[Rfam]
RNA sequence: CGGCUUGCUCCGGGGAGCCCUGAUGCGCCAAGGCGAUGGCUUUGGCGUCGGGCUGAGACGUGGUGGAAGCCAUGGACCCGCUGAACUUGAUCCGGUUCGUACCGGCGUAAGAAGAGCCUGCCAGCCCGUG
Numbered sequence: 001c002g003g004c005u006u007g008c009u010c011c012g013g014g015g016a017g018c019c020c021u022g023a024u025g026c027g028c029c030a031a032g033g034c035g036a037u038g039g040c041u042u043u044g045g046c047g048u049c050g051g052g053c054u055g056a057g058a059c060g061u062g063g064u065g066g067a068a069g070c071c072a073u074g075g076a077c078c079c080g081c082u083g084a085a086c087u088u089g090a091u092c093c094g095g096u097u098c099g100u101a102c103c104g105g106c107g108u109a110a111g112a113a114g115a116g117c118c119u120g121c122c123a124g125c126c127c128g129u130g
Base pairs, nucleotide, nucleotide: 007117008116009115010114011080012079013078014077017053018052019051020050060073061072062071063070064069086111087110088109089108092105093104094103095102

Record summary
The family of this 130-nucleotide RNA from Mitsuaria sp. WAJ17 is "TPP riboswitch aptamer (THI element)". From the family's description: Vitamin B(1) in its active form thiamin pyrophosphate (TPP) is an essential coenzyme that is synthesised by coupling of pyrimidine and thiazole moieties in bacteria. The previously detected thiamin-regulatory element, thi box was extended, resulting in a new, highly conserved RNA secondary structure, the THI element, which is widely distributed in eubacteria and also occurs in some archaea. Analysis of operon structures identified a large number of new candidate thiamin-regulated genes, mostly transporters, in various prokaryotic organisms. The THI element is a riboswitch that directly binds to TPP to regulate gene expression through a variety of mechanisms in archaea, bacteria and eukaryotes. through a variety of mechanisms in archaea, bacteria and eukaryotes. The family's consensus secondary structure is taken from published work. NCBI's taxonomy places the organism under Bacteria, Pseudomonadati, Pseudomonadota, Betaproteobacteria, Roseateles. A search with the family's covariance model found it, with a score of 60 bits.